Record summary:
The family of this 87-nucleotide RNA from Capsaspora owczarzaki is "Selenocysteine transfer RNA". NCBI's taxonomy places the organism under Eukaryota, Opisthokonta, Ministeriida, Capsaspora, Capsaspora owczarzaki. Its Rfam clan is "tRNA clan".

RNA sequence: GCUCGAAUGAGCUUCGCCGGUCGCGGGGAACGGGCUUCAAACCCGUUGGUGGUUGACGCCACAGCAGUUCGACUCUGCCUUUCGAGC
Numbered sequence: 001g002c003u004c005g006a007a008u009g010a011g012c013u014u015c016g017c018c019g020g021u022c023g024c025g026g027g028g029a030a031c032g033g034g035c036u037u038c039a040a041a042c043c044c045g046u047u048g049g050u051g052g053u054u055g056a057c058g059c060c061a062c063a064g065c066a067g068u069u070c071g072a073c074u075c076u077g078c079c080u081u082u083c084g085a086g087c
Stems, first nucleotide, its partner, number of pairs: 001087007009079001012028006029047006049062005064078004
A search with the family's covariance model found it, with a score of 69 bits. The family's consensus secondary structure is taken from published work.